[Rfam]
RNA sequence: GCCGGUCCUCGGUAGUGGCCCCCUGGCCGAUCCGAAUCCCAGGGGACUUCGAUCGAAGACCGGC
Numbered sequence: 001g002c003c004g005g006u007c008c009u010c011g012g013u014a015g016u017g018g019c020c021c022c023c024u025g026g027c028c029g030a031u032c033c034g035a036a037u038c039c040c041a042g043g044g045g046a047c048u049u050c051g052a053u054c055g056a057a058g059a060c061c062g063g064c
Stems, first nucleotide, its partner, number of pairs: 001064007009056005017048002020045007029038003
Rfam assigns this 64-nucleotide RNA from Saccharothrix tamanrassetensis to the family "Actino-pnp RNA". Taxonomically the source falls in Saccharothrix (Bacteria, Actinomycetes, Pseudonocardiales, Pseudonocardiaceae). It is annotated as a cis-regulatory element. The match comes from Rfam's covariance-model search (63 bits).